[Rfam]
Background:
The record is a 348-nucleotide sequence from Sulfitobacter noctilucicola, which matches "Alphaproteobacteria transfer-messenger RNA" in Rfam.
RNA sequence: CCCCUUGAAACGCGGGCACCUGCCCGCUAUCUAUGAUCUGUCCUUCGGGACUAUGAACAUAAACGCGCUCGUAAUAAUCGGAUCGGACCCGGGGGCGGUACCCGGCGACUCCACCAAUAUCCUUCAUUUGGGGAUCAUGGGGUCGAAACAGGAUCGACGAACGCCUAAAGGGGUUAGCUUUGUUUCGGCUGUCUGCCACCGUUAUCGGCGAAACUUGUACAAUUGCAAAUGACAAUCGUGCUCCAAUGGCGAUGGCCGCGUAAGCGACCGGAACUAUUGAAAUCUAAGUCCUAGAGCUUUGCAGCCCUAGGCGGGGUUCGCAGGUACCUGGCAACAGAAACCUGCACU
Numbered sequence: 001c002c003c004c005u006u007g008a009a010a011c012g013c014g015g016g017c018a019c020c021u022g023c024c025c026g027c028u029a030u031c032u033a034u035g036a037u038c039u040g041u042c043c044u045u046c047g048g049g050a051c052u053a054u055g056a057a058c059a060u061a062a063a064c065g066c067g068c069u070c071g072u073a074a075u076a077a078u079c080g081g082a083u084c085g086g087a088c089c090c091g092g093g094g095g096c097g098g099u100a101c102c103c104g105g106c107g108a109c110u111c112c113a114c115c116a117a118u119a120u121c122c123u124u125c126a127u128u129u130g131g132g133g134a135u136c137a138u139g140g141g142g143u144c145g146a147a148a149c150a151g152g153a154u155c156g157a158c159g160a161a162c163g164c165c166u167a168a169a170g171g172g173g174u175u176a177g178c179u180u181u182g183u184u185u186c187g188g189c190u191g192u193c194u195g196c197c198a199c200c201g202u203u204a205u206c207g208g209c210g211a212a213a214c215u216u217g218u219a220c221a222a223u224u225g226c227a228a229a230u231g232a233c234a235a236u237c238g239u240g241c242u243c244c245a246a247u248g249g250c251g252a253u254g255g256c257c258g259c260g261u262a263a264g265c266g267a268c269c270g271g272a273a274c275u276a277u278u279g280a281a282a283u284c285u286a287a288g289u290c291c292u293a294g295a296g297c298u299u300u301g302c303a304g305c306c307c308u309a310g311g312c313g314g315g316g317u318u319c320g321c322a323g324g325u326a327c328c329u330g331g332c333a334a335c336a337g338a339a340a341c342c343u344g345c346a347c348u
Stems, first nucleotide, its partner, number of pairs: 040051004055185005065178002067174004079163002083160003089105005106145007186201003192211002195209003314329004320345006

Rfam classes the family as a non-coding RNA gene. Bacterial tmRNA, also known as 10Sa RNA or SsrA, is named for its dual tRNA and mRNA-like properties. The family's consensus secondary structure is taken from published work. NCBI's taxonomy places the organism under Bacteria, Pseudomonadati, Pseudomonadota, Alphaproteobacteria, Sulfitobacter. A reference for the family is Williams and Bartel (1996), "Phylogenetic analysis of tmRNA secondary structure", RNA.